RNA: Vertebrate telomerase RNA
RNA sequence: CGUGCCGGGGUGGGCAGGCCCUGCGGCCAACUAACCCUAAUGGCGGCUGCGCCCCUCACGCCCGCCCGCUGUUUUACUCGCUGACUUUCAGCGGGCACAGGGAGCGGCCCAGGGAAAGGAGGGAGGGGAAAAGAGGUCCGGCCUCAAAAAAAAAAGCCAGCGAGGGUGAUCCACACCCCGGCCCACCCUGGGGUCCCUGUCCCUCCUCCGCAACCGGAGAUGCUCCCGCCUCCGCCCCUCGUGGAGGCCGCGGUCGGCAGGCUCAGCGCCACUACCGCCGCGAAGAGCUCGUCUCUGUCAGCCUUGGCGGUGGCCGGGACCGGAGGGCCGGCCCGCCCACCCUGGGCAGCCGGGGGACCCCAGCAGAACAAAACGGGCGCGGCGCCGCCGGGCGCUGAGCAGCCGCGGCUCCCUCAGACGUGGGGUGCGCGGCCGGCGCCGCCCCGACACCC
Dot-bracket structure: ...(((((((((.(.(.(((((............................((.((........((((((((........[[[[.[[[[))))))))....)).))..............................................]]].].]]]].)))))..).).))))))))).....(((((((.............................(((((...(((((............(((((.(((..(((.....)))....)))))))).((((.....)))).........)))))....))))).....................................)))))))...........((((..((((((................(((((..((((........))))..)))))..))))))))))........